[Rfam]
RNA sequence: UGCUAGCCCUGAUUGUAACGACAUCCUUUUGUGGUGGGGUUCACCACAAAAGAUAUAGUGAAAAGCAGGAAUCAGC
Numbered sequence: 001u002g003c004u005a006g007c008c009c010u011g012a013u014u015g016u017a018a019c020g021a022c023a024u025c026c027u028u029u030u031g032u033g034g035u036g037g038g039g040u041u042c043a044c045c046a047c048a049a050a051a052g053a054u055a056u057a058g059u060g061a062a063a064a065g066c067a068g069g070a071a072u073c074a075g076c
Stems, first nucleotide, its partner, number of pairs: 009068003013064002018059002023054003029049008
RNA: Flavo-1 RNA